This 79-nucleotide RNA sequence from Medicago truncatula belongs to the Rfam family "MIR5269 microRNA precursor family". Taxonomically the source falls in Medicago (Eukaryota, Streptophyta, rosids, Fabaceae).

[Rfam]
RNA sequence: UUAGUUUAAAUCAUUAUGAGUCUAUACUUUGAAAAUAGAAUCCAUACAAAAUGGUGGGACAUACAUUGAUUUCAUUCAA
Dot-bracket structure: ((.(.(.((((((.(.((...(((((.((((...............)))).)).)))....)).).)))))).).).))